[Rfam]
RNA sequence: ACGUUCGGGUAAUUGCUGCAUCACAUAUGAGGAUGUAGAGGAAAGUCCAUGCUCGCACAGACUGCGAUGUCUGUAGUGUUCGUGCCUAGCGAAGUCAUAAGCUAGGGUAGCUGUUAAAAGCUAACGGCGGGGAAAAAGCCUAAGUCUUUUUAAGAUAUGGCUUGACUACUCUGAAAGUGCCACAGUGACGAAGUCUUAUCAGAAAUGGUAAGAGUGGAACGAGGUAAACCCCUCGAGCGAGAAACCCAAAUAAUGGUAGGGGAACUUUCUGGAAGGAACUGAACGGAAGGAAGGACAAAAUGGUUACAUUUUGUAGAUAGAUAAUUGCCACCGGAGUACGAGGUAGCUAGCCGCUUGCAGUACAAUGGUACAAAACAUGGCUUACAGAA
Numbered sequence: 001a002c003g004u005u006c007g008g009g010u011a012a013u014u015g016c017u018g019c020a021u022c023a024c025a026u027a028u029g030a031g032g033a034u035g036u037a038g039a040g041g042a043a044a045g046u047c048c049a050u051g052c053u054c055g056c057a058c059a060g061a062c063u064g065c066g067a068u069g070u071c072u073g074u075a076g077u078g079u080u081c082g083u084g085c086c087u088a089g090c091g092a093a094g095u096c097a098u099a100a101g102c103u104a105g106g107g108u109a110g111c112u113g114u115u116a117a118a119a120g121c122u123a124a125c126g127g128c129g130g131g132g133a134a135a136a137a138g139c140c141u142a143a144g145u146c147u148u149u150u151u152a153a154g155a156u157a158u159g160g161c162u163u164g165a166c167u168a169c170u171c172u173g174a175a176a177g178u179g180c181c182a183c184a185g186u187g188a189c190g191a192a193g194u195c196u197u198a199u200c201a202g203a204a205a206u207g208g209u210a211a212g213a214g215u216g217g218a219a220c221g222a223g224g225u226a227a228a229c230c231c232c233u234c235g236a237g238c239g240a241g242a243a244a245c246c247c248a249a250a251u252a253a254u255g256g257u258a259g260g261g262g263a264a265c266u267u268u269c270u271g272g273a274a275g276g277a278a279c280u281g282a283a284c285g286g287a288a289g290g291a292a293g294g295a296c297a298a299a300a301u302g303g304u305u306a307c308a309u310u311u312u313g314u315a316g317a318u319a320g321a322u323a324a325u326u327g328c329c330a331c332c333g334g335a336g337u338a339c340g341a342g343g344u345a346g347c348u349a350g351c352c353g354c355u356u357g358c359a360g361u362a363c364a365a366u367g368g369u370a371c372a373a374a375a376c377a378u379g380g381c382u383u384a385c386a387g388a389a
Stems, first nucleotide, its partner, number of pairs: 004389003007385001008329007016038006043383003047380005052241005057074006080236003084232001085106006107125001108123005126231002129171003137162004144156003177229002179225003194213008245261003265294006295314008331368003336363004

Shown here is a 389-nucleotide RNA sequence from Priestia megaterium, a member of the family "Bacterial RNase P class B". NCBI's taxonomy places the organism under Bacteria, Bacilli, Caryophanales, Bacillaceae, Priestia megaterium. Ribonuclease P (RNase P) is a ubiquitous endoribonuclease, found in archaea, bacteria and eukarya as well as chloroplasts and mitochondria. Its best characterised activity is the generation of mature 5'-ends of tRNAs by cleaving the 5'-leader elements of precursor-tRNAs. Cellular RNase Ps are ribonucleoproteins. RNA from bacterial RNase Ps retains its catalytic activity in the absence of the protein subunit, i.e. it is a ribozyme. Isolated eukaryotic and archaeal RNase P RNA has not been shown to retain its catalytic function, but is still essential for the catalytic activity of the holoenzyme. Although the archaeal and eukaryotic holoenzyme s have a much greater protein content than the bacterial ones, the RNA cores from all the three lineages are homologous -- helices corresponding to P1, P2, P3, P4, and P10/11 are common to all cellular RNase P RNAs. Yet, there is considerable sequence variation, particularly among the eukaryotic RNAs.